[Rfam]
RNA sequence: GACCGUUGUCGGGUCCCUCUCCUCCUCCCUGGGGCCUUGCACAGGCGGCGGCGCCCCUCCUCCUCCCAGGCGCCGCCGCGUCCAUUCAGUUUCGAAGCCCCUUCUCCUCCUCCCUGGGGUUUCGUUUA
Numbered sequence: 001g002a003c004c005g006u007u008g009u010c011g012g013g014u015c016c017c018u019c020u021c022c023u024c025c026u027c028c029c030u031g032g033g034g035c036c037u038u039g040c041a042c043a044g045g046c047g048g049c050g051g052c053g054c055c056c057c058u059c060c061u062c063c064u065c066c067c068a069g070g071c072g073c074c075g076c077c078g079c080g081u082c083c084a085u086u087c088a089g090u091u092u093c094g095a096a097g098c099c100c101c102u103u104c105u106c107c108u109c110c111u112c113c114c115u116g117g118g119g120u121u122u123c124g125u126u127u128a
Stems, first nucleotide, its partner, number of pairs: 007041003011037007046078010094123008
Alphaproteobacterial ar14: a 128-nucleotide RNA sequence from Antarctobacter aquimaris. The pairing is the family consensus, mapped onto this sequence. About the family: Smr14C2 was renamed NfeR1 (Nodule Formation Efficiency RNA) highly expressed in salt stress and during the symbiotic interaction on legume roots. By type it is a small RNA.